[Rfam]
About this RNA
A member of the RNA family "Histone 3' UTR stem-loop" from Eurystomus gularis, 47 nucleotides long. Pairs were carried over by alignment from the consensus structure, which is taken from published work. It is annotated as a cis-regulatory element. It scores 37 bits against the family's covariance model. Lineage of the source: Eukaryota > Eumetazoa > Bilateria > Neognathae > Eurystomus.
RNA sequence: CCAAAGGCUCUUUUAAGAGCCACCACAUGGCCACUUAAAGAGAGCUG
Number, nucleotide and partner (000 for none) at each position: 001c000002c000003a000004a000005a000006g021007g020008c019009u018010c017011u016012u000013u000014u000015a000016a011017g010018a009019g008020c007021c006022a000023c000024c000025a000026c000027a000028u000029g000030g000031c000032c000033a000034c000035u000036u000037a000038a000039a000040g000041a000042g000043a000044g000045c000046u000047g000